[Rfam]
RNA sequence: AGUGUUAUUUUUUCUGAAACGUUGAAACAAUGUUCAGACACCUUCUGACACAGUGCUUAAUUUUCUGUGAAUGAGAAGUCAUCUAUAUUCUGAUGAUACA
Numbered sequence: 001a002g003u004g005u006u007a008u009u010u011u012u013u014c015u016g017a018a019a020c021g022u023u024g025a026a027a028c029a030a031u032g033u034u035c036a037g038a039c040a041c042c043u044u045c046u047g048a049c050a051c052a053g054u055g056c057u058u059a060a061u062u063u064u065c066u067g068u069g070a071a072u073g074a075g076a077a078g079u080c081a082u083c084u085a086u087a088u089u090c091u092g093a094u095g096a097u098a099c100a
Stems, first nucleotide, its partner, number of pairs: 002099006049055002
Dot-bracket structure: .((((((.........................................((...))......................................)))))).